[Rfam]
RNA: MarS sRNA
Organism: Streptococcus australis
RNA sequence: AUGCGAUGAGUCGAUUGGCUCUUAGGAGCCUUUUGCGCUGAGGAGGUCUACAUUCAAUUGUAACGCAGGAGCGGACCUUGAACAGUUUUGUGAACCGGCUGUUCUCAUCGAGAGAUGCCUCGAUCCCUUACCAUUUGGUAAGGGAUUUUU
Numbered sequence: 001a002u003g004c005g006a007u008g009a010g011u012c013g014a015u016u017g018g019c020u021c022u023u024a025g026g027a028g029c030c031u032u033u034u035g036c037g038c039u040g041a042g043g044a045g046g047u048c049u050a051c052a053u054u055c056a057a058u059u060g061u062a063a064c065g066c067a068g069g070a071g072c073g074g075a076c077c078u079u080g081a082a083c084a085g086u087u088u089u090g091u092g093a094a095c096c097g098g099c100u101g102u103u104c105u106c107a108u109c110g111a112g113a114g115a116u117g118c119c120u121c122g123a124u125c126c127c128u129u130a131c132c133a134u135u136u137g138g139u140a141a142g143g144g145a146u147u148u149u150u
Base pairs, nucleotide, nucleotide: 012035013034014033017030018029019028020027021026040121041120042119043118044078045077046076047075064073065072066071080104081103082102083101084100085099086098106117107116108115109114124145125144126143127142128141129140130139131138132137